[Rfam]
RNA sequence: ACACGCCUCAAACACUCUGGGCCUUGCUUCCUUUCCUUCGUGGAUCGGUUCAACCUAUGGCAUAGCCCUAUUUUUGGAAGGCGAAGACUGACUUCGUCCGAUUACUCACCGCGAUAUCUUAUCCUUCGGGCGUAGAUAUAGUGGUCCAUAUCUUCUGGUCGACAU
Numbered sequence: 001a002c003a004c005g006c007c008u009c010a011a012a013c014a015c016u017c018u019g020g021g022c023c024u025u026g027c028u029u030c031c032u033u034u035c036c037u038u039c040g041u042g043g044a045u046c047g048g049u050u051c052a053a054c055c056u057a058u059g060g061c062a063u064a065g066c067c068c069u070a071u072u073u074u075u076g077g078a079a080g081g082c083g084a085a086g087a088c089u090g091a092c093u094u095c096g097u098c099c100g101a102u103u104a105c106u107c108a109c110c111g112c113g114a115u116a117u118c119u120u121a122u123c124c125u126u127c128g129g130g131c132g133u134a135g136a137u138a139u140a141g142u143g144g145u146c147c148a149u150a151u152c153u154u155c156u157g158g159u160c161g162a163c164a165u
Base pairs, nucleotide, nucleotide: 007080019068020067021066022065025062026061027060028059030048031047096160098158099157109144110143111142112141114139115138116137117136118135119134